[Rfam]
RNA sequence: AAAAAAUGAAUAUCCUUACCGUAGACAGCAGGUACGCUUUUGCGUUUAAAAUGGCCCGCCGAGGAUUUAGAUGAACAAGAUAGUCUUAUCUUGUGAUUUUACCCUUGCUGUUACGGUGGCAAGGGUUUUAUUUUGUUCGC
Numbered sequence: 001a002a003a004a005a006a007u008g009a010a011u012a013u014c015c016u017u018a019c020c021g022u023a024g025a026c027a028g029c030a031g032g033u034a035c036g037c038u039u040u041u042g043c044g045u046u047u048a049a050a051a052u053g054g055c056c057c058g059c060c061g062a063g064g065a066u067u068u069a070g071a072u073g074a075a076c077a078a079g080a081u082a083g084u085c086u087u088a089u090c091u092u093g094u095g096a097u098u099u100u101a102c103c104c105u106u107g108c109u110g111u112u113a114c115g116g117u118g119g120c121a122a123g124g125g126u127u128u129u130a131u132u133u134u135g136u137u138c139g140c
Stems, first nucleotide, its partner, number of pairs: 028059002031056003034045003102125010

Source information:
Rfam assigns this 140-nucleotide RNA from Listeria fleischmannii to the family "Ribosomal protein L10 leader". By type it is a cis-regulatory leader. It scores 80 bits against the family's covariance model. This family is a putative r-protein leader autoregulatory structure found in B. subtilis and other low-GC Gram-positive bacteria.